The record is a 163-nucleotide RNA from an uncultured Pseudomonadota bacterium, which matches "permuted transfer-messenger RNA" in Rfam. The literature on the family includes a 2002 paper in Nucleic Acids Res by Laslett et al., "BRUCE: a program for the detection of transfer-messenger RNA genes in nucleotide sequences".

RNA sequence: GGUAAUAAACGGUUCGCAGAAUAGUUUUCAUGGACCGGGGGGCGGUACCCCGCACUUCCACCAUUUUAUGGGAGUGAAAUAGGUUCGACAUGGGAAAGUAAAGGUGAAUUCGUUACUCGGCAUUGUUCCACCGUUAUCGGGCUAAAAAUUUAUAAUUGCCAAC
Numbered sequence: 001g002g003u004a005a006u007a008a009a010c011g012g013u014u015c016g017c018a019g020a021a022u023a024g025u026u027u028u029c030a031u032g033g034a035c036c037g038g039g040g041g042g043c044g045g046u047a048c049c050c051c052g053c054a055c056u057u058c059c060a061c062c063a064u065u066u067u068a069u070g071g072g073a074g075u076g077a078a079a080u081a082g083g084u085u086c087g088a089c090a091u092g093g094g095a096a097a098g099u100a101a102a103g104g105u106g107a108a109u110u111c112g113u114u115a116c117u118c119g120g121c122a123u124u125g126u127u128c129c130a131c132c133g134u135u136a137u138c139g140g141g142c143u144a145a146a147a148a149u150u151u152a153u154a155a156u157u158g159c160c161a162a163c
Base pairs, nucleotide, nucleotide: 001117002116003115004114005113014107015106016105017104026095027094028093030091031090032089036052037051038050039049040048053076054075055074056073057072058071059070118133119132120131